[Rfam]
A member of the RNA family "PyrR binding site" from Streptococcus henryi, 109 nucleotides long. This family represents the PyrR binding site and terminator structure. This RNA structure is found upstream of a variety of genes involved in pyrimidine biosynthesis and transport. The alignment also includes a portion of the antiterminator structure. A reference for the family is Bonner et al. (2001), "Molecular recognition of pyr mRNA by the Bacillus subtilis attenuation regulatory protein PyrR", Nucleic Acids Res.
RNA sequence: AAAACCUUUAAUUGCGUCCAGAGAGGCGGCGGAAGGUUCACGGAAAAAAAUUGGGUAGUAGUGUACCCAUCUUUUGUGGAACCCUGCCCUCUGGCAGGGUUUUCUUUAU
Numbered sequence: 001a002a003a004a005c006c007u008u009u010a011a012u013u014g015c016g017u018c019c020a021g022a023g024a025g026g027c028g029g030c031g032g033a034a035g036g037u038u039c040a041c042g043g044a045a046a047a048a049a050a051u052u053g054g055g056u057a058g059u060a061g062u063g064u065a066c067c068c069a070u071c072u073u074u075u076g077u078g079g080a081a082c083c084c085u086g087c088c089c090u091c092u093g094g095c096a097g098g099g100u101u102u103u104c105u106u107u108a109u
Stems, first nucleotide, its partner, number of pairs: 003038007013031002015028004046075004052069006078103011
The source organism's lineage runs through Bacteria, Bacillati, Bacillota, Lactobacillales and Streptococcus. It scores 55 bits against the family's covariance model.